[Rfam]
Nucleotides: 103
Stems, first nucleotide, its partner, number of pairs: 002102006013041001015040003021031003025077001027075002042069004047065002049062004073095001078092006
Number, partner (000 for none) and nucleotide at each position: 001000u002102c003101c004100u005099u006098a007097u008000a009000a010000a011000g012000a013041g014000u015040g016039g017038c018000g019000g020000a021031g022030g023029g024000a025077u026000c027075g028074g029023c030022c031021c032000u033000g034000u035000g036000a037000a038017g039016c040015c041013c042069g043068g044067c045066a046000a047065c048064c049062u050061g051060c052059a053000c054000u055000u056000a057000g058000a059052u060051g061050c062049a063000a064048g065047g066045u067044g068043c069042u070000a071000a072000a073095u074028c075027c076000c077025g078092c079091a080090g081089c082088a083087u084000u085000u086000u087083g088082u089081g090080c091079u092078g093000a094000g095073a096000g097007a098006u099005a100004a101003g102002g103000u

Rfam assigns this 103-nucleotide sequence from Eubacterium sp. CAG:180 to the family "SAM riboswitch aptamer (S box leader)".
NCBI's taxonomy places the organism under Bacteria, Bacillota, Clostridia, Eubacteriales, Eubacterium.
The match comes from Rfam's covariance-model search (86 bits).
From the family's description: The SAM riboswitch is found upstream of a number of genes which code for proteins involved in methionine or cysteine biosynthesis in Gram-positive bacteria.